[Rfam]
RNA: MIR2118 microRNA precursor family
Organism: Digitaria exilis
RNA sequence: GCUGGGAAGAGGAAGAAAGAGAGGCUCAAGAGCAGUGGGAAUGGGAACAUGGAGGAAACCCUACACUGUUUAUUUCCUCCAGAAACAGAGGUGGAAAGCUUUGUUUGGUGUUUCCCGGUGCCUCCAUUUCCUAUCGUUCUUGAGCGUUCCUUCCUCUUCCUUUUGUCU
Number, nucleotide and partner (000 for none) at each position: 001g000002c000003u000004g000005g000006g000007a000008a000009g159010a158011g157012g156013a155014a000015g153016a152017a151018a000019g000020a000021g149022a148023g147024g000025c144026u143027c142028a141029a140030g139031a138032g137033c136034a000035g000036u133037g132038g131039g130040a129041a128042u000043g000044g125045g124046a123047a000048c120049a119050u118051g000052g116053a000054g115055g114056a113057a112058a111059c000060c110061c000062u000063a000064c000065a000066c000067u000068g000069u000070u000071u000072a000073u000074u000075u000076c000077c000078u000079c000080c000081a000082g000083a000084a000085a000086c000087a000088g000089a000090g000091g000092u000093g000094g000095a000096a000097a000098g000099c000100u000101u000102u000103g000104u000105u000106u000107g000108g000109u000110g060111u058112u057113u056114c055115c054116c052117g000118g050119u049120g048121c000122c000123u046124c045125c044126a000127u000128u041129u040130c039131c038132u037133a036134u000135c000136g033137u032138u031139c030140u029141u028142g027143a026144g025145c000146g000147u023148u022149c021150c000151u017152u016153c015154c000155u013156c012157u011158u010159c009160c000161u000162u000163u000164u000165g000166u000167c000168u000